[Rfam]
RNA sequence: GAUUGUAUCGAUUCGAUCGGGAUACUCAUCAAAUUACGUUGAAAACAGAGCAUGCUUCUCUUGCCAAUGGCGGGCCACAUCAAGCACCAAGUGCCCAGCUGUAAAGCCGGUGGAUUACAAAGACGGAGAGCGCUCACAACUUUUUAAGCUGGAGUUUUCAUCACAUCAUCGUUACGAUCCCCUUU
Numbered sequence: 001g002a003u004u005g006u007a008u009c010g011a012u013u014c015g016a017u018c019g020g021g022a023u024a025c026u027c028a029u030c031a032a033a034u035u036a037c038g039u040u041g042a043a044a045a046c047a048g049a050g051c052a053u054g055c056u057u058c059u060c061u062u063g064c065c066a067a068u069g070g071c072g073g074g075c076c077a078c079a080u081c082a083a084g085c086a087c088c089a090a091g092u093g094c095c096c097a098g099c100u101g102u103a104a105a106g107c108c109g110g111u112g113g114a115u116u117a118c119a120a121a122g123a124c125g126g127a128g129a130g131c132g133c134u135c136a137c138a139a140c141u142u143u144u145u146a147a148g149c150u151g152g153a154g155u156u157u158u159c160a161u162c163a164c165a166u167c168a169u170c171g172u173u174a175c176g177a178u179c180c181c182c183u184u185u
Stems, first nucleotide, its partner, number of pairs: 054131003058128002061126003065122001068119002075113004098107003
RNA: Bacteroidales-1 6S-Bacteroidales RNA suggested